A member of the RNA family "c-di-GMP-I riboswitch aptamer" from Cetobacterium somerae, 76 nucleotides long. The family's consensus secondary structure is taken from published work. A search with the family's covariance model found it, with a score of 57 bits. Clan: c-di-GMP_I riboswitch clan.
RNA sequence: CAAACAAGCAGGCAAAAUAAGGGAAACUUUAUGACGCAAAGCUAUAGGACCUGUAAAAUGGUAGCCAGUUGCAACA
Numbered sequence: 001c002a003a004a005c006a007a008g009c010a011g012g013c014a015a016a017a018u019a020a021g022g023g024a025a026a027c028u029u030u031a032u033g034a035c036g037c038a039a040a041g042c043u044a045u046a047g048g049a050c051c052u053g054u055a056a057a058a059u060g061g062u063a064g065c066c067a068g069u070u071g072c073a074a075c076a
Stems, first nucleotide, its partner, number of pairs: 012037002017032006040070004047066002049062003